[Rfam]
Notes: c-di-AMP riboswitch aptamer (ydaO/yuaA leader): a 142-nucleotide RNA sequence from Alicyclobacillus acidocaldarius.
Nucleotides: 142
Stems, first nucleotide, its partner, number of pairs: 011127004019032004035121005061107003069084004087101003
Number, partner (000 for none) and nucleotide at each position: 001000u002000c003000c004000a005000a006000g007000a008000c009000u010000u011127u012126g013125c014124c015000g016000a017000a018000u019032c020031g021030c022029g023000c024000a025000u026000g027000u028000g029022c030021g031020c032019g033000u034000a035121c036120g037119g038118g039117g040000g041000a042000c043000u044000g045000a046000a047000g048000g049000c050000c051000u052000u053000u054000g055000g056000c057000c058000u059000u060000g061107g062106g063105g064000u065000g066000a067000a068000u069084c070083g071082c072081g073000c074000c075000g076000u077000g078000u079000g080000g081072c082071g083070c084069g085000a086000a087101g088100g089099g090000g091000a092000c093000u094000c095000g096000u097000u098000a099089c100088c101087c102000g103000a104000a105063c106062c107061c108000g109000a110000c111000a112000a113000c114000u115000a116000a117039c118038c119037u120036c121035g122000g123000a124014g125013g126012c127011g128000u129000a130000a131000a132000c133000g134000a135000g136000a137000g138000g139000a140000u141000g142000g
Overview
NCBI's taxonomy places the organism under Bacteria, Bacillati, Bacillota, Bacilli, Alicyclobacillus acidocaldarius subsp. acidocaldarius.